[Rfam]
RNA: Small nucleolar RNA SNORD58
Organism: Alectura lathami
RNA sequence: CUGCGGUGAUGAUGAUCUUAGGACACCUUUGGAUUUAAUUGUGAAAAGAAAUCUAAUCUCUGAGCGGC
Numbered sequence: 001c002u003g004c005g006g007u008g009a010u011g012a013u014g015a016u017c018u019u020a021g022g023a024c025a026c027c028u029u030u031g032g033a034u035u036u037a038a039u040u041g042u043g044a045a046a047a048g049a050a051a052u053c054u055a056a057u058c059u060c061u062g063a064g065c066g067g068c
Stems, first nucleotide, its partner, number of pairs: 001067004